Shown here is a 135-nucleotide sequence from Xenopus tropicalis, a member of the family "Small Cajal body specific RNA 3".
RNA sequence: AUUGGAAGCUGUAGUAUCCAUGUGUGCAGUGCAAGUGUCUGCCCACCAUAGCAGCCUUCCUACAGAAAUAUUGUGGAGAUCUCUGUCUGGCUUUGCAGAGCUUGGGCUUAGCCAGAUCGUUCCCCUCCAUACAUA
Numbered sequence: 001a002u003u004g005g006a007a008g009c010u011g012u013a014g015u016a017u018c019c020a021u022g023u024g025u026g027c028a029g030u031g032c033a034a035g036u037g038u039c040u041g042c043c044c045a046c047c048a049u050a051g052c053a054g055c056c057u058u059c060c061u062a063c064a065g066a067a068a069u070a071u072u073g074u075g076g077a078g079a080u081c082u083c084u085g086u087c088u089g090g091c092u093u094u095g096c097a098g099a100g101c102u103u104g105g106g107c108u109u110a111g112c113c114a115g116a117u118c119g120u121u122c123c124c125c126u127c128c129a130u131a132c133a134u135a
Base pairs, nucleotide, nucleotide: 004060005059006058008055009054010053011052012051022046023045024044026042027041031038032037075128076127077126078125083119085117086116087115089113090112091111092110095107

The base pairs follow the family's consensus structure, which was predicted with RNAalifold. From the family's description: scaRNAs are a specific class of small nuclear RNAs which localise to the Cajal bodies and guide the modification of RNA polymerase II transcribed spliceosomal RNAs U1, U2, U4, U5 and U12. By type it is a small Cajal body RNA. On this family, see Huttenhofer et al., EMBO J 2001: "RNomics: an experimental approach that identifies 201 candidates for novel, small, non-messenger RNAs in mouse".